A member of the RNA family "mir-8/mir-141/mir-200 microRNA precursor family" from Candidula unifasciata, 75 nucleotides long. The family is grouped with related families in Rfam's "mir-8 microRNA precursor clan". Taxonomically the source falls in Candidula (Eukaryota, Opisthokonta, Panpulmonata, Eupulmonata). The match comes from Rfam's covariance-model search (55 bits). On this family, see Lagos-Quintana et al., Science 2001: "Identification of novel genes coding for small expressed RNAs".
[Rfam]
RNA sequence: AAAGUCGUCUUACCUAGCAGCAUUGGAGGUUGUCCAUCAACUCCUGCUCUAAUACUGUCAGGUAAAGAUGUCCUU
Numbered sequence: 001a002a003a004g005u006c007g008u009c010u011u012a013c014c015u016a017g018c019a020g021c022a023u024u025g026g027a028g029g030u031u032g033u034c035c036a037u038c039a040a041c042u043c044c045u046g047c048u049c050u051a052a053u054a055c056u057g058u059c060a061g062g063u064a065a066a067g068a069u070g071u072c073c074u075u
Base pairs, nucleotide, nucleotide: 002074004072006070007069008068009067010065011064012063013062014061015060017058018057019056020055022053023052024051025050026049027048